Shown here is a 70-nucleotide sequence from Streptomyces sp. TAA204, a member of the family "L17-Actino-Proteobacteria ribosomal protein leader". By type it is a cis-regulatory leader. On this family, see Eckert and Weinberg, BMC Microbiol 2020: "Discovery of 20 novel ribosomal leader candidates in bacteria and archaea".
[Rfam]
RNA sequence: CCGGCCGGGACACCCUUCCGGUACCUGAUACGGCCGGAGCUGCCACCGGUACCUGACACGGCCGGUGCAG
Numbered sequence: 001c002c003g004g005c006c007g008g009g010a011c012a013c014c015c016u017u018c019c020g021g022u023a024c025c026u027g028a029u030a031c032g033g034c035c036g037g038a039g040c041u042g043c044c045a046c047c048g049g050u051a052c053c054u055g056a057c058a059c060g061g062c063c064g065g066u067g068c069a070g
Base pairs, nucleotide, nucleotide: 001037002036003035004034005033006032007031040070041069042068044067045066046065047064048063049062050061